[Rfam]
RNA sequence: UGACCAGGGGGCCGGGUUGUGUUGAUUGAAAUGAUCGGCGCGACCUAGGGGUACAGGGAGUACCUCCGUUGAGGGCCGGGUCAGGCAAGCU
Numbered sequence: 001u002g003a004c005c006a007g008g009g010g011g012c013c014g015g016g017u018u019g020u021g022u023u024g025a026u027u028g029a030a031a032u033g034a035u036c037g038g039c040g041c042g043a044c045c046u047a048g049g050g051g052u053a054c055a056g057g058g059a060g061u062a063c064c065u066c067c068g069u070u071g072a073g074g075g076c077c078g079g080g081u082c083a084g085g086c087a088a089g090c091u
Base pairs, nucleotide, nucleotide: 001083002082003081004080005079010077011076012075013074014046015045016044017043018042020040021039022038023037024036025035026034027033048066049065050064051063052062053061054060

Annotation:
The family of this 91-nucleotide RNA sequence is "ivy-DE RNA". Rfam classes the family as a cis-regulatory element.